[Rfam]
RNA sequence: AGAUCAGCUCGUAGAGCCGCGAGCUGGGUAAAAUAAAAAACGCUCACUGAGA
Numbered sequence: 001a002g003a004u005c006a007g008c009u010c011g012u013a014g015a016g017c018c019g020c021g022a023g024c025u026g027g028g029u030a031a032a033a034u035a036a037a038a039a040a041c042g043c044u045c046a047c048u049g050a051g052a
Base pairs, nucleotide, nucleotide: 006025007024008023009022010021011020014045015044016043017042
Rfam assigns this 52-nucleotide RNA sequence to the family "6A RNA".